[Rfam]
RNA sequence: CUGGCAACAAUAUCCUGAUGCUGUCUGAGUUACAGGCAAAUCUCCAGCAUCAGUGAUUUUGUUGUUGG
Number, nucleotide and partner (000 for none) at each position: 001c000002u000003g000004g000005c000006a063007a062008c061009a060010a059011u000012a057013u056014c055015c053016u052017g051018a050019u049020g048021c047022u046023g045024u000025c000026u000027g000028a000029g000030u000031u000032a000033c000034a000035g000036g000037c000038a000039a000040a000041u000042c000043u000044c000045c023046a022047g021048c020049a019050u018051c017052a016053g015054u000055g014056a013057u012058u000059u010060u009061g008062u007063u006064g000065u000066u000067g000068g000

A member of the RNA family "mir-338 microRNA precursor family" from Aquarana catesbeiana, 68 nucleotides long. Its family is annotated with RISC complex and miRNA-mediated post-transcriptional gene silencing in the Gene Ontology. Taxonomically the source falls in Aquarana (Eukaryota, Deuterostomia, Dipnotetrapodomorpha, Batrachia).